[Rfam]
RNA sequence: CGCGUAGCUGGUCGGAUAACGACAGCGGCUACGGGAUACCCCGGGACUGUGGGAUAGUCUUGAGAACCUGGGCGAGGCGGCGAAGUUAGCACCUCGAGACGAACGGCUGACGGGC
Numbered sequence: 001c002g003c004g005u006a007g008c009u010g011g012u013c014g015g016a017u018a019a020c021g022a023c024a025g026c027g028g029c030u031a032c033g034g035g036a037u038a039c040c041c042c043g044g045g046a047c048u049g050u051g052g053g054a055u056a057g058u059c060u061u062g063a064g065a066a067c068c069u070g071g072g073c074g075a076g077g078c079g080g081c082g083a084a085g086u087u088a089g090c091a092c093c094u095c096g097a098g099a100c101g102a103a104c105g106g107c108u109g110a111c112g113g114g115c
Base pairs, nucleotide, nucleotide: 001035003033004032005031006030007029008028009027010026022050023049024048025047041071042070043069044068045067057100058099059098060097073096074095075094076093077092085111086110087109088108089107090106
A member of the RNA family "Betaproteobacteria-1 RNA", 115 nucleotides long. It is annotated as a small RNA. The family's consensus secondary structure is taken from published work.